[Rfam]
Nucleotides: 072
Stems, first nucleotide, its partner, number of pairs: 001071007010024004026042005048064005
Number, partner (000 for none) and nucleotide at each position: 001071g002070c003069c004068c005067g006066u007065u008000u009000a010024g011023c012022u013021c014000a015000g016000u017000g018000g019000u020000a021013g022012a023011g024010c025000g026042c027041g028040u029039c030038a031000c032000u033000u034000g035000u036000a037000a038030u039029g040028a041027c042026g043000a044000g045000g046000u047000c048064a049063g050062u051061g052060g053000u054000u055000c056000a057000a058000u059000c060052c061051c062050g063049c064048u065007a066006g067005u068004g069003g070002g071001c072000c